[Rfam]
Nucleotides: 228
Base pairs, nucleotide, nucleotide: 005085006084007083009082010081011080012079013078014077015076016075017074018073021041022040023039024038027035028034045052046051055067056066057065058064088226089225091223095216096215097214098213099212100211104192106190107189108188109187110186111185112184113183114182115180117149118148119147120146124141125140126139127138128137129136153177154176155175157174158173159172161170194204195203196202
Number, partner (000 for none) and nucleotide at each position: 001000g002000a003000c004000u005085u006084a007083c008000u009082u010081c011080u012079c013078a014077g015076u016075g017074g018073c019000a020000a021041g022040c023039u024038u025000a026000a027035c028034c029000g030000u031000u032000u033000a034028g035027g036000g037000u038024a039023g040022g041021c042000g043000g044000a045052g046051g047000g048000a049000a050000a051046c052045c053000g054000a055067g056066u057065c058064u059000u060000a061000a062000u063000a064058g065057g066056g067055c068000g069000u070000u071000g072000a073018g074017u075016c076015g077014c078013u079012g080011g081010g082009a083007g084006u085005a086000g087000a088226c089225c090000c091223g092000a093000a094000a095216c096215c097214g098213g099212g100211c101000g102000a103000u104192c105000u106190a107189u108188c109187c110186a111185u112184g113183g114182c115180c116000a117149g118148g119147g120146u121000g122000a123000a124141g125140g126139c127138a128137g129136g130000g131000u132000a133000a134000c135000a136129c137128c138127u139126g140125c141124u142000g143000g144000a145000g146120g147119c148118c149117c150000g151000a152000a153177c154176c155175c156000a157174c158173c159172g160000u161170c162000g163000u164000u165000g166000a167000a168000a169000a170161g171000c172159c173158g174157g175155g176154g177153g178000a179000u180115g181000a182114g183113c184112u185111g186110u187109g188108g189107a190106u191000c192104g193000g194204a195203g196202u197000g198000a199000a200000a201000g202196g203195c204194u205000a206000a207000u208000c209000a210000a211100g212099c213098c214097c215096g216095g217000a218000g219000a220000u221000a222000g223091c224000u225089g226088g227000u228000u